[Rfam]
RNA sequence: AAGAGCUUCAAGUCAAUAAAUACUAAGAAGAUUGACUCAAGAUCCAA
Numbered sequence: 001a002a003g004a005g006c007u008u009c010a011a012g013u014c015a016a017u018a019a020a021u022a023c024u025a026a027g028a029a030g031a032u033u034g035a036c037u038c039a040a041g042a043u044c045c046a047a
Base pairs, nucleotide, nucleotide: 007041008040011037012036013035014034015033016032017031
A member of the RNA family "Plastid-rpl16 group II-D1 intron" from Capsicum baccatum, 47 nucleotides long. Plastid-rpl16 is a non-coding RNA (ncRNA) recognised in plastids. The base pairs follow the family's consensus structure, which was predicted with LocARNA. A reference for the family is Richter et al. (2023), "Retrograde signaling in plants: A critical review focusing on the GUN pathway and beyond", Plant Commun. The source organism's lineage runs through Eukaryota, Euphyllophyta, Magnoliopsida, Pentapetalae and Capsicum.